[Rfam]
RNA: wcaG RNA
RNA sequence: AAGAGACUCGGUAAGUCGUAUAAACUAGCCCUGGUGCGGAUGGGUUACUCCCGCUCUGUUUCUUACUUCAGGUUAAAGAGUAAGUGGCGUGCAUGACA
Numbered sequence: 001a002a003g004a005g006a007c008u009c010g011g012u013a014a015g016u017c018g019u020a021u022a023a024a025c026u027a028g029c030c031c032u033g034g035u036g037c038g039g040a041u042g043g044g045u046u047a048c049u050c051c052c053g054c055u056c057u058g059u060u061u062c063u064u065a066c067u068u069c070a071g072g073u074u075a076a077a078g079a080g081u082a083a084g085u086g087g088c089g090u091g092c093a094u095g096a097c098a
Base pairs, nucleotide, nucleotide: 010030011029012027013026015025041053042052043051044050055072056071057070058069062084063083064082065081066080067079